[Rfam]
RNA: Archaeal large subunit ribosomal RNA, nucleotides 10 to 539
Organism: Haloglomus irregulare
Nucleotides: 530
Base pairs, nucleotide, nucleotide: 007523008522009521010520011519012518013517014516015515016514022508023472024471027443028442029440030439031438032437033436034435035433036432045106046105047104048061049060050059067100068099069098070097071096072095076088077087078086111120112119113118127141128140129139130138131137148179149177150176151175152174153173159166160165189196190195200227201226202225203224210218211217230426231425232424233423238259239258240257269364270363271362272361279357280356281355282354293342294341295340299315301314302313303312304311318322324336325335326334376397377396378395379394380393381392382391404420405419406418407417408416459466460465
Number, partner (000 for none) and nucleotide at each position: 001000c002000u003000a004000c005000u006000g007523u008522g009521c010520u011519g012518c013517c014516u015515g016514g017000u018000g019000g020000a021000u022508g023472g024471c025000u026000c027443g028442g029440c030439u031438c032437a033436g034435a035433c036432g037000c038000c039000g040000a041000c042000g043000a044000a045106g046105g047104a048061c049060g050059u051000g052000c053000c054000a055000a056000g057000c058000u059050g060049c061048g062000a063000u064000a065000a066000g067100c068099c069098c070097u071096a072095g073000g074000g075000a076088g077087c078086c079000g080000c081000a082000c083000g084000g085000a086078g087077g088076c089000g090000a091000a092000g093000a094000a095072c096071u097070a098069g099068g100067g101000a102000u103000g104047u105046c106045c107000g108000a109000a110000u111120g112119g113118g114000a115000a116000u117000c118113c119112c120111c121000a122000c123000c124000g125000c126000a127141a128140u129139u130138g131137c132000u133000u134000c135000g136000c137131g138130c139129a140128a141127u142000g143000g144000g145000g146000a147000a148179c149177g150176c151175a152174c153173c154000g155000a156000a157000u158000u159166g160165a161000a162000a163000c164000a165160u166159c167000u168000c169000a170000g171000u172000a173153g174152g175151u176150g177149c178000a179148g180000g181000a182000a183000g184000a185000g186000a187000a188000a189196u190195c191000a192000a193000c194000c195190g196189a197000g198000a199000u200227g201226u202225c203224g204000u205000u206000a207000c208000u209000a210218a211217c212000c213000g214000c215000g216000a217211g218210u219000g220000a221000a222000c223000c224203c225202g226201a227200c228000a229000c230426a231425g232424u233423c234000c235000a236000a237000a238259c239258c240257g241000a242000a243000g244000g245000c246000u247000u248000c249000g250000g251000c252000c253000a254000a255000u256000g257240u258239g259238g260000u261000g262000u263000u264000c265000g266000g267000a268000c269364u270363g271362g272361c273000u274000c275000u276000c277000a278000u279357c280356c281355g282354a283000g284000g285000a286000a287000g288000c289000u290000c291000g292000a293342c294341g295340a296000g297000a298000a299315g300000u301314c302313u303312c304311c305000u306000g307000g308000a309000a310000c311304g312303g313302a314301g315299c316000g317000u318322g319000a320000a321000a322318c323000a324336g325335g326334g327000u328000g329000a330000c331000a332000a333000c334326c335325c336324c337000g338000u339000a340295u341294c342293g343000u344000c345000g346000u347000g348000c349000a350000g351000u352000a353000c354282u355281c356280g357279g358000u359000g360000c361272g362271u363270c364269a365000g366000c367000u368000c369000c370000a371000g372000a373000g374000u375000a376397g377396c378395g379394g380393g381392g382391a383000u384000u385000g386000g387000a388000a389000a390000u391382u392381c393380c394379u395378c396377g397376u398000g399000a400000a401000g402000c403000u404420g405419g406418c407417a408416g409000a410000c411000a412000u413000c414000g415000u416408c417407u418406g419405c420404c421000a422000a423233g424232a425231c426230u427000a428000a429000a430000u431000a432036c433035g434000u435034u436033c437032u438031g439030a440029g441000a442028c443027c444000g445000a446000u447000a448000g449000c450000g451000a452000a453000a454000a455000a456000g457000u458000a459466g460465c461000g462000u463000g464000a465460g466459c467000g468000a469000a470000c471024g472023c473000u474000g475000a476000a477000a478000a479000g480000c481000a482000c483000c484000c485000c486000g487000a488000g489000a490000a491000g492000g493000g494000a495000g496000g497000u498000g499000c500000a501000a502000u503000a504000g505000g506000g507000c508022c509000u510000g511000a512000a513000a514016u515015c516014a517013g518012g519011u520010a521009g522008c523007g524000a525000u526000a527000g528000a529000g530000c